[Rfam]
RNA sequence: ACAACGGAGAGUUUGAUCCUGGCUCAGGAUGAACGCUAGCGGGAGGCUUAACACAUGCAAGCCGAGGGGUAUUUAAUUUUCGGAUUAGAGAGACCGGCGAACGGGUGCGUAACGCGUAUGUAACUUGCCCUUAUCGGGAGGAUAGCCCGAGGAAACUCGGAUUAAUACUCCAUAACAAUAAUUAUGGCAUCAUAAAUAUUUAAAAGAUUUAUCGGAUAAGGAUAGGCAUGCGUCAGAUUAGUUAGUUGGUAGUGUAGAGGACUACCAAGGCGAUGAUCUGUAGGGGGCCUGAGAGGGUGAACCCCCACACUGGUACUGAGACACGGACCAGACUCCUACGGGAGGCAGCAGUGAGGAAUAUUGGACAAUGGGUGGAAGCCUGAUCCAGCCAUCCCGCGUGCAGGAAGACGGCCCUAUGGGUUGUAAACUGCUUUUGUAUAGGGAUAAAUCAUCUUACGAGAUAGGAUGUUGAAGGUACUAUACGAAUAAGCAUCGGCUAACUCCGUGCCAGCAGCCGCGGUAAUACGGAGGAUGCGAGCGUUAUCCGGAUUCAUUG
Numbered sequence: 001a002c003a004a005c006g007g008a009g010a011g012u013u014u015g016a017u018c019c020u021g022g023c024u025c026a027g028g029a030u031g032a033a034c035g036c037u038a039g040c041g042g043g044a045g046g047c048u049u050a051a052c053a054c055a056u057g058c059a060a061g062c063c064g065a066g067g068g069g070u071a072u073u074u075a076a077u078u079u080u081c082g083g084a085u086u087a088g089a090g091a092g093a094c095c096g097g098c099g100a101a102c103g104g105g106u107g108c109g110u111a112a113c114g115c116g117u118a119u120g121u122a123a124c125u126u127g128c129c130c131u132u133a134u135c136g137g138g139a140g141g142a143u144a145g146c147c148c149g150a151g152g153a154a155a156c157u158c159g160g161a162u163u164a165a166u167a168c169u170c171c172a173u174a175a176c177a178a179u180a181a182u183u184a185u186g187g188c189a190u191c192a193u194a195a196a197u198a199u200u201u202a203a204a205a206g207a208u209u210u211a212u213c214g215g216a217u218a219a220g221g222a223u224a225g226g227c228a229u230g231c232g233u234c235a236g237a238u239u240a241g242u243u244a245g246u247u248g249g250u251a252g253u254g255u256a257g258a259g260g261a262c263u264a265c266c267a268a269g270g271c272g273a274u275g276a277u278c279u280g281u282a283g284g285g286g287g288c289c290u291g292a293g294a295g296g297g298u299g300a301a302c303c304c305c306c307a308c309a310c311u312g313g314u315a316c317u318g319a320g321a322c323a324c325g326g327a328c329c330a331g332a333c334u335c336c337u338a339c340g341g342g343a344g345g346c347a348g349c350a351g352u353g354a355g356g357a358a359u360a361u362u363g364g365a366c367a368a369u370g371g372g373u374g375g376a377a378g379c380c381u382g383a384u385c386c387a388g389c390c391a392u393c394c395c396g397c398g399u400g401c402a403g404g405a406a407g408a409c410g411g412c413c414c415u416a417u418g419g420g421u422u423g424u425a426a427a428c429u430g431c432u433u434u435u436g437u438a439u440a441g442g443g444a445u446a447a448a449u450c451a452u453c454u455u456a457c458g459a460g461a462u463a464g465g466a467u468g469u470u471g472a473a474g475g476u477a478c479u480a481u482a483c484g485a486a487u488a489a490g491c492a493u494c495g496g497c498u499a500a501c502u503c504c505g506u507g508c509c510a511g512c513a514g515c516c517g518c519g520g521u522a523a524u525a526c527g528g529a530g531g532a533u534g535c536g537a538g539c540g541u542u543a544u545c546c547g548g549a550u551u552c553a554u555u556g
Base pairs, nucleotide, nucleotide: 009025010024011023012022013021027546028545029544030543032542033541034540035539036538037537039397040396041395042394043393044392045390046389047355052353053352054351056350057349058348061098062097063096066095067094070091072089073088074087075086076085077084078083105308106307107306114233115232116231117230118229119228120227121226124225125224129221130220131219132218133217134216135215137171138170139169140168145162147160148159149158150157151156177200178199179198180197182195183194184193185192186191206213207212234280235279236278241271242270243269246268247267248266249265250264251263252262253261283305284304285303286302287298288297289296290295310331311330312329313328314327333344334343335342336341361387363386364385365384369382370381371380372379373378400431401430402429403428410422411421412420413419436483437482438481439480440479441478445473451467452466453465490535491534492533493532494531501530502529503528504527505526511518512517
RNA: Bacterial small subunit ribosomal RNA, nucleotides 1 to 556